[Rfam]
RNA sequence: ACACCUUCCAUUGGUGGACAGUAUUUUCAAUAUAAAAUCUAUUCUUUUCAGCUUAAUAUCUGUAUUUUGAAAGUUCCCGCACUGCGGGACCAGUAUAUUAAACUGAUUUUUGAAAAUCGACGGGAUGUUCGGGGCUCGCUCCACUCCCGUCACUGGUCGGCCCAGCAUUGCUGUGCCGCCGGGAUCGGCCCACAUAUA
Numbered sequence: 001a002c003a004c005c006u007u008c009c010a011u012u013g014g015u016g017g018a019c020a021g022u023a024u025u026u027u028c029a030a031u032a033u034a035a036a037a038u039c040u041a042u043u044c045u046u047u048u049c050a051g052c053u054u055a056a057u058a059u060c061u062g063u064a065u066u067u068u069g070a071a072a073g074u075u076c077c078c079g080c081a082c083u084g085c086g087g088g089a090c091c092a093g094u095a096u097a098u099u100a101a102a103c104u105g106a107u108u109u110u111u112g113a114a115a116a117u118c119g120a121c122g123g124g125a126u127g128u129u130c131g132g133g134g135c136u137c138g139c140u141c142c143a144c145u146c147c148c149g150u151c152a153c154u155g156g157u158c159g160g161c162c163c164a165g166c167a168u169u170g171c172u173g174u175g176c177c178g179c180c181g182g183g184a185u186c187g188g189c190c191c192a193c194a195u196a197u198a
Stems, first nucleotide, its partner, number of pairs: 046072006075089006119151007131142004155190005161183003165179002
This 198-nucleotide RNA sequence from Parnassius apollo belongs to the Rfam family "U2 spliceosomal RNA". The family's RNA type in Rfam is spliceosomal small nuclear RNA. From the family's description: U2 is a small nuclear RNA (snRNA) component of the spliceosome (involved in pre-mRNA splicing). Complementary binding between U2 snRNA (in an area lying towards the 5' end but 3' to hairpin I) and the branchpoint sequence (BPS) of the intron results the bulging out of an unpaired adenosine, on the BPS, which initiates a nucleophilic attack at the intronic 5' splice site, thus starting the first of two transesterification reactions that mediate splicing. The family has 208 seed sequences and 71,512 matches in Rfam 15.1. Rfam links the family to the GO terms U2 snRNP, pre-mRNA branch point binding and mRNA branch site recognition. NCBI's taxonomy places the organism under Eukaryota, Ecdysozoa, Mandibulata, Pterygota, Parnassius. The match comes from Rfam's covariance-model search (87 bits).